[Rfam]
RNA sequence: AGUGAAUACAAAGCGCCUGAACUAAGUAAAGGGACGGAAACGACUUAGUUGACGAGGAGGAGGUUUAUCGAAGUAUCGGCGGAUGCCUCCCGGUUGUUGAUUAUCACGGCCGAAAACUUGAUGUGAAAAACAAUGAGGUGACUUAUUGGACAAAAGCAUUGAGAUGAUAAUCA
Numbered sequence: 001a002g003u004g005a006a007u008a009c010a011a012a013g014c015g016c017c018u019g020a021a022c023u024a025a026g027u028a029a030a031g032g033g034a035c036g037g038a039a040a041c042g043a044c045u046u047a048g049u050u051g052a053c054g055a056g057g058a059g060g061a062g063g064u065u066u067a068u069c070g071a072a073g074u075a076u077c078g079g080c081g082g083a084u085g086c087c088u089c090c091c092g093g094u095u096g097u098u099g100a101u102u103a104u105c106a107c108g109g110c111c112g113a114a115a116a117c118u119u120g121a122u123g124u125g126a127a128a129a130a131c132a133a134u135g136a137g138g139u140g141a142c143u144u145a146u147u148g149g150a151c152a153a154a155a156g157c158a159u160u161g162a163g164a165u166g167a168u169a170a171u172c173a
Stems, first nucleotide, its partner, number of pairs: 020050008059090005068079004091112006117163007131148007
Dot-bracket structure: ...................((((((((...............))))))))........(((((....((((....))))......)))))((((((..........))))))....(((((((.......(((((((....)))))))........)))))))..........
RNA: glmS glucosamine-6-phosphate activated ribozyme aptamer